[Rfam]
RNA sequence: CCUCUAUCUUGGCAUGCCUUUACAUAGUUGAUUGUAAAGCAUGAAUGCUUAAUAGAGGAAGAAUAAAAAAGUGAAGUAAGCCUUCGGUGCUCAAUUGCUCAUAUAUUUGGGUCCCAUCCUCUUUUGCUUCAAACAAGG
Numbered sequence: 001c002c003u004c005u006a007u008c009u010u011g012g013c014a015u016g017c018c019u020u021u022a023c024a025u026a027g028u029u030g031a032u033u034g035u036a037a038a039g040c041a042u043g044a045a046u047g048c049u050u051a052a053u054a055g056a057g058g059a060a061g062a063a064u065a066a067a068a069a070a071g072u073g074a075a076g077u078a079a080g081c082c083u084u085c086g087g088u089g090c091u092c093a094a095u096u097g098c099u100c101a102u103a104u105a106u107u108u109g110g111g112u113c114c115c116a117u118c119c120u121c122u123u124u125u126g127c128u129u130c131a132a133a134c135a136a137g138g
Base pairs, nucleotide, nucleotide: 001058002057003056004055005054013043014042015041016040017039021036022035023034024033073127075125076124090111091110092109093108094107096105

Rfam assigns this 138-nucleotide RNA sequence from Pediculus humanus to the family "Small nucleolar RNA SNORA57". The source organism's lineage runs through Eukaryota, Eumetazoa, Paraneoptera, Phthiraptera and Pediculus humanus. The match comes from Rfam's covariance-model search (40 bits). The family's RNA type in Rfam is H/ACA-box small nucleolar RNA. Its family is annotated with nucleolus and RNA processing in the Gene Ontology. Rfam's curators write: U99 belongs to the H/ACA class of snoRNAs which are thought to guide the sites of modification of uridines to pseudouridines, the target for this family is unknown. For this family Rfam cites "Identification of 13 novel human modification guide RNAs" (Vitali et al., Nucleic Acids Res, 2003). The family's consensus secondary structure was predicted with PFOLD.